[Rfam]
RNA sequence: CGCCUGGAUGUGUCGGCCAUGGUUUAACGACAGGCACCAGGGGACAGCUGAACUGUGGGAUUAGGGGCUGAGAUACAGCAAAGGGUGGCGAAGCCAGAGCCCUUGCCCCGAACGUCUGGCGGGU
Numbered sequence: 001c002g003c004c005u006g007g008a009u010g011u012g013u014c015g016g017c018c019a020u021g022g023u024u025u026a027a028c029g030a031c032a033g034g035c036a037c038c039a040g041g042g043g044a045c046a047g048c049u050g051a052a053c054u055g056u057g058g059g060a061u062u063a064g065g066g067g068c069u070g071a072g073a074u075a076c077a078g079c080a081a082a083g084g085g086u087g088g089c090g091a092a093g094c095c096a097g098a099g100c101c102c103u104u105g106c107c108c109c110g111a112a113c114g115u116c117u118g119g120c121g122g123g124u
Base pairs, nucleotide, nucleotide: 001043003041004040005039006038007037009036010035011034030056031055032054033053047079048078049077050076052074065108066107067106068105081104082103083102084101085100086099093120094119095118096117097116098115
RNA: Betaproteobacteria-1 RNA